RNA: HDV ribozyme from F. prausnitzii
RNA sequence: GGGGUGCGCAAUAGACUUACCUCCACGUGGUGCACCCUGGGCAACGUAUACUUAUACGGCCAAAAGUCUGU
Numbered sequence: 001g002g003g004g005u006g007c008g009c010a011a012u013a014g015a016c017u018u019a020c021c022u023c024c025a026c027g028u029g030g031u032g033c034a035c036c037c038u039g040g041g042c043a044a045c046g047u048a049u050a051c052u053u054a055u056a057c058g059g060c061c062a063a064a065a066g067u068c069u070g071u
Base pairs, nucleotide, nucleotide: 001038002037003036004035005034006033007032019031020030021029045058046057047056048055049054